[Rfam]
RNA: TPP riboswitch aptamer (THI element)
Organism: Clostridium magnum
RNA sequence: UAAAUUUUGUGGGGGUGCCUAUAGGCUGAGAAGAUAUUAUUCUAACCCUUUGAACCUGAUCCAGUUAACUCUGGCGUAGGGAAGCAAGUUAUAGUAUAAC
Numbered sequence: 001u002a003a004a005u006u007u008u009g010u011g012g013g014g015g016u017g018c019c020u021a022u023a024g025g026c027u028g029a030g031a032a033g034a035u036a037u038u039a040u041u042c043u044a045a046c047c048c049u050u051u052g053a054a055c056c057u058g059a060u061c062c063a064g065u066u067a068a069c070u071c072u073g074g075c076g077u078a079g080g081g082a083a084g085c086a087a088g089u090u091a092u093a094g095u096a097u098a099a100c
Stems, first nucleotide, its partner, number of pairs: 006088005011049004017026003033042002055080004061074004